This 146-nucleotide RNA from Cucumis sativus belongs to the Rfam family "Small nucleolar RNA snoR136". The base pairs follow the family's consensus structure, which was predicted with mfold. NCBI's taxonomy places the organism under Eukaryota, rosids, fabids, Cucurbitaceae, Cucumis. The literature on the family includes a 2009 paper in Nucleic Acids Res by Chen and Wu, "Mining small RNA sequencing data: a new approach to identify small nucleolar RNAs in Arabidopsis". By type it is an H/ACA-box small nucleolar RNA. The match comes from Rfam's covariance-model search (67 bits).
RNA sequence: UUGUGCCUCACUUUCUGAACAUUGAUUUUGUAUCUAGCUUUACAUUCAAUGAAGUUCGAACUCAUAGUGAGGCCUAGAUGAACGUUCUCCUCGCUAUCCAGAGUUUCAUUUAACAUGAUCCAUUUGGACGUCGGAGAACUACAUUC
Numbered sequence: 001u002u003g004u005g006c007c008u009c010a011c012u013u014u015c016u017g018a019a020c021a022u023u024g025a026u027u028u029u030g031u032a033u034c035u036a037g038c039u040u041u042a043c044a045u046u047c048a049a050u051g052a053a054g055u056u057c058g059a060a061c062u063c064a065u066a067g068u069g070a071g072g073c074c075u076a077g078a079u080g081a082a083c084g085u086u087c088u089c090c091u092c093g094c095u096a097u098c099c100a101g102a103g104u105u106u107c108a109u110u111u112a113a114c115a116u117g118a119u120c121c122a123u124u125u126g127g128a129c130g131u132c133g134g135a136g137a138a139c140u141a142c143a144u145u146c
Stems, first nucleotide, its partner, number of pairs: 001077002003074001005073002009069004014064001024063002027060002034058001036056006084139007092130002097128005106118003